[Rfam]
RNA sequence: GCGAGACAGGUGGGCCGGUGGCGAGGCACGACCGAUAAGCUGUUCCUGGACCACUCCGGGCGCAGCUCCCGGCGGGUCCGCCAAUGAUCAGCCAGCAGCCGCUGCAACCACAGGGAG
Numbered sequence: 001g002c003g004a005g006a007c008a009g010g011u012g013g014g015c016c017g018g019u020g021g022c023g024a025g026g027c028a029c030g031a032c033c034g035a036u037a038a039g040c041u042g043u044u045c046c047u048g049g050a051c052c053a054c055u056c057c058g059g060g061c062g063c064a065g066c067u068c069c070c071g072g073c074g075g076g077u078c079c080g081c082c083a084a085u086g087a088u089c090a091g092c093c094a095g096c097a098g099c100c101g102c103u104g105c106a107a108c109c110a111c112a113g114g115g116a117g
Stems, first nucleotide, its partner, number of pairs: 048079005057071004093104004

This 117-nucleotide RNA sequence from Streptomyces acidiscabies belongs to the Rfam family "Streptomyces-metK RNA".
The family's consensus secondary structure is taken from published work.
Taxonomically the source falls in Streptomyces acidiscabies (Bacteria, Actinomycetota, Actinomycetes, Streptomycetaceae).
It is one of the family's seed sequences.
Rfam classes the family as a small RNA.